Overview
The record is a 234-nucleotide sequence from Medicago truncatula, which matches "MIR2655 microRNA precursor family" in Rfam. Its family is annotated with RISC complex and miRNA-mediated post-transcriptional gene silencing in the Gene Ontology. The organism belongs to Medicago, within Eukaryota. The sequence is in the family's curated seed alignment.
RNA sequence: CUCAUAAGUAAUAAAAGGUCCGUUUAGGUCCCUUAACUUUAUUUAAAGUAUCAGUUUGAUCAUUUAUGUUAAUUUAAUUAAAAAAAACGUUAAGUUUAUGAACCAAACUAAUACUAAUUAAAUAAGAUAAGGGAUCAAAAUUUAACAUUUUUUUAAAUUAAAUUAACAGAAAGGACCAAACCAAUACUUUCAAUAAAGUUAAGGGACUAAAACGGACCUUUUAUUAUUUAUGGA
Numbered sequence: 001c002u003c004a005u006a007a008g009u010a011a012u013a014a015a016a017g018g019u020c021c022g023u024u025u026a027g028g029u030c031c032c033u034u035a036a037c038u039u040u041a042u043u044u045a046a047a048g049u050a051u052c053a054g055u056u057u058g059a060u061c062a063u064u065u066a067u068g069u070u071a072a073u074u075u076a077a078u079u080a081a082a083a084a085a086a087a088c089g090u091u092a093a094g095u096u097u098a099u100g101a102a103c104c105a106a107a108c109u110a111a112u113a114c115u116a117a118u119u120a121a122a123u124a125a126g127a128u129a130a131g132g133g134a135u136c137a138a139a140a141u142u143u144a145a146c147a148u149u150u151u152u153u154u155a156a157a158u159u160a161a162a163u164u165a166a167c168a169g170a171a172a173g174g175a176c177c178a179a180a181c182c183a184a185u186a187c188u189u190u191c192a193a194u195a196a197a198g199u200u201a202a203g204g205g206a207c208u209a210a211a212a213c214g215g216a217c218c219u220u221u222u223a224u225u226a227u228u229u230a231u232g233g234a
Stems, first nucleotide, its partner, number of pairs: 002233007023212003027208003031204013045190003